[Rfam]
RNA sequence: GGGGUGUGAUCAGAGCAGGGAGUCUGAAGAAUGGCUUCUCUGUUUACAACACAUCCAACAGGAAUAUGGGUUUACUCCUCACAGGUGGUAGAGUACUAUGACCUUCCUGUGACAUUAUGCCCUAAACAU
Numbered sequence: 001g002g003g004g005u006g007u008g009a010u011c012a013g014a015g016c017a018g019g020g021a022g023u024c025u026g027a028a029g030a031a032u033g034g035c036u037u038c039u040c041u042g043u044u045u046a047c048a049a050c051a052c053a054u055c056c057a058a059c060a061g062g063a064a065u066a067u068g069g070g071u072u073u074a075c076u077c078c079u080c081a082c083a084g085g086u087g088g089u090a091g092a093g094u095a096c097u098a099u100g101a102c103c104u105u106c107c108u109g110u111g112a113c114a115u116u117a118u119g120c121c122c123u124a125a126a127c128a129u
Base pairs, nucleotide, nucleotide: 002056003055004054005053006052007051008050013045014044015043016042017041018040019039020038021037022035023034024033069122070121072119076114080111081110083104084103085102088099089098090097091096

This 129-nucleotide RNA sequence from Pteropus alecto belongs to the Rfam family "Small nucleolar RNA SNORA11". NCBI's taxonomy places the organism under Eukaryota, Chordata, Tetrapoda, Boreoeutheria, Pteropus. Rfam classes the family as an H/ACA-box small nucleolar RNA. U107 (SNORA11) is a member of the H/ACA class of snoRNAs that guide the sites of modification of uridines to pseudouridines. This snoRNA was identified by RT-PCR from blood cells and its expression confirmed by Northern blot analysis. There is no predicted target for this guide snRNA.